[Rfam]
RNA sequence: UCUAGCUCUGAUUGUCCAAACGCAAUUCUUGUUUUAUUCGAAUAUGAUAUCCAAGAGUUGUGACUGGACAUCCGUGGCUCGA
Number, nucleotide and partner (000 for none) at each position: 001u000002c081003u000004a079005g078006c077007u076008c000009u000010g072011a071012u070013u000014g069015u068016c067017c066018a065019a000020a000021c062022g061023c060024a059025a058026u057027u056028c055029u054030u053031g052032u000033u000034u000035u000036a000037u000038u000039c000040g000041a000042a000043u000044a000045u000046g000047a000048u000049a000050u000051c000052c031053a030054a029055g028056a027057g026058u025059u024060g023061u022062g021063a000064c000065u018066g017067g016068a015069c014070a012071u011072c010073c000074g000075u000076g007077g006078c005079u004080c000081g002082a000